[Rfam]
RNA sequence: UCCUUCUCAAUGAGCUCCUUCCUGCCAUAAAAUCAGUGGCAGUCUAUGGAUUCGCACGAGAAGAACAUUAAAAGCUCAGUGCUGGCUUAUUCACUUUCUGGUCUUGUCAGAUACCGUGAUUAGCUAUGGCUGGACACUU
Numbered sequence: 001u002c003c004u005u006c007u008c009a010a011u012g013a014g015c016u017c018c019u020u021c022c023u024g025c026c027a028u029a030a031a032a033u034c035a036g037u038g039g040c041a042g043u044c045u046a047u048g049g050a051u052u053c054g055c056a057c058g059a060g061a062a063g064a065a066c067a068u069u070a071a072a073a074g075c076u077c078a079g080u081g082c083u084g085g086c087u088u089a090u091u092c093a094c095u096u097u098c099u100g101g102u103c104u105u106g107u108c109a110g111a112u113a114c115c116g117u118g119a120u121u122a123g124c125u126a127u128g129g130c131u132g133g134a135c136a137c138u139u
Stems, first nucleotide, its partner, number of pairs: 003063006014055002016050003022042007077132003095113001097111004

Small nucleolar RNA SNORA75: a 139-nucleotide sequence from Crocodylus porosus. A search with the family's covariance model found it, with a score of 86 bits. Its family is annotated with RNA processing and nucleolus in the Gene Ontology. The family's RNA type in Rfam is H/ACA-box small nucleolar RNA. Rfam describes the family as follows. U23 belongs to the H/ACA class of snoRNAs. snoRNAs bind a number of proteins (including dyskerin, Gar1p and Nop10p in the case of the H/ACA class) to form snoRNP complexes. This class are thought to guide the sites of modification of uridines to pseudouridines by forming direct base pairing interactions with substrate RNAs. Targets include ribosomal and spliceosomal RNAs as well as the Trypanosoma spliced leader RNA (SL RNA) as possibly other, still unknown cellular RNAs. U23 can direct the pseudouridylation of U97 in human 18S rRNA (Bachellerie JP, Ganot, P unpublished data). U23 is encoded within intron 12 of the nucleolin gene in human, mouse, rat chicken, and Xenopus laevis.